[Rfam]
RNA: azaaromatic riboswitch aptamer (yjdF RNA)
Organism: Gemella morbillorum
RNA sequence: UAAUUUGAAGAUAAAAACGCAAUAUAUAUUUUUUAAUGUAUUAGAACUGGUAGGUAGCCCAGUCGUCUAAAUUAUUUUAUUUAGGUAAGUAACCUUCCCCUCCGGGUUGUCCAUUCUUCAAUAAAGUAUU
Number, nucleotide and partner (000 for none) at each position: 001u000002a000003a000004u000005u121006u120007g119008a118009a117010g116011a115012u000013a000014a000015a000016a000017a000018c000019g000020c000021a000022a000023u000024a000025u000026a000027u000028a000029u000030u000031u000032u000033u000034u000035a000036a000037u000038g000039u000040a000041u000042u000043a000044g000045a000046a063047c062048u061049g060050g059051u000052a000053g000054g000055u000056a000057g000058c000059c050060c049061a048062g047063u046064c000065g086066u085067c084068u083069a082070a081071a080072u079073u000074a000075u000076u000077u000078u000079a072080u071081u070082u069083a068084g067085g066086u065087a000088a000089g000090u000091a000092a000093c000094c000095u000096u000097c106098c105099c104100c000101u000102c000103c000104g099105g098106g097107u000108u000109g000110u000111c000112c000113a000114u000115u011116c010117u009118u008119c007120a006121a005122u000123a000124a000125a000126g000127u000128a000129u000130u000